Shown here is a 74-nucleotide RNA sequence from Planotetraspora silvatica, a member of the family "Selenocysteine transfer RNA".
[Rfam]
RNA sequence: CGGCGGGUGAGGGCGCUGGUGUGCCCGGCGGUUUCAUAAGCCGCUCCGGGCGGGUUCGAUUCCCGCACCCGCCA
Number, nucleotide and partner (000 for none) at each position: 001c000002g073003g072004c071005g070006g069007g068008u067009g066010a000011g026012g025013g024014c023015g022016c021017u000018g000019g000020u000021g016022u015023g014024c013025c012026c011027g045028g044029c043030g042031g041032u040033u000034u000035c000036a000037u000038a000039a000040g032041c031042c030043g029044c028045u027046c000047c000048g000049g000050g000051c065052g064053g063054g062055u000056u000057c000058g000059a000060u000061u000062c054063c053064c052065g051066c009067a008068c007069c006070c005071g004072c003073c002074a000
Clan: tRNA clan. The base pairs follow the family's consensus structure, which is taken from published work.